PreQ1 (pre queuosine) riboswitch aptamer: a 45-nucleotide RNA from Rodentibacter trehalosifermentans. The organism belongs to Rodentibacter, within Bacteria. From the family's description: This family is a bacterial riboswitch that binds to the metabolite preQ1, an intermediate in the biosynthesis of the modified nucleoside queuosine from GTP. One example of this riboswitch is located in the leader of the Bacillus subtilis ykvJKLM (queCDEF) operon which encodes four genes necessary for queuosine production. PreQ1 binding to the riboswitch aptamer is thought to induce premature transcription termination within the leader to down-regulate expression of these genes. Rfam 15.1 lists 873 matches to the family in 692 species.
RNA sequence: AACGUUGUAGUUCGCAAACCUCCUACAUAAAAAAACUAGGUACAA
Numbered sequence: 001a002a003c004g005u006u007g008u009a010g011u012u013c014g015c016a017a018a019c020c021u022c023c024u025a026c027a028u029a030a031a032a033a034a035a036c037u038a039g040g041u042a043c044a045a
Stems, first nucleotide, its partner, number of pairs: 006027005016037001